[Rfam]
RNA sequence: UAAUACAAAAGAAAAGGAAGCCUUGCUUGAACAAGACUUCCCCAUAGAGACGUUUAAGACGGUGGCAAUAGUUAUAAUAAAAUUAAA
Numbered sequence: 001u002a003a004u005a006c007a008a009a010a011g012a013a014a015a016g017g018a019a020g021c022c023u024u025g026c027u028u029g030a031a032c033a034a035g036a037c038u039u040c041c042c043c044a045u046a047g048a049g050a051c052g053u054u055u056a057a058g059a060c061g062g063u064g065g066c067a068a069u070a071g072u073u074a075u076a077a078u079a080a081a082a083u084u085a086a087a
Stems, first nucleotide, its partner, number of pairs: 022035004049063001051061004
RNA: RNA anti-toxin A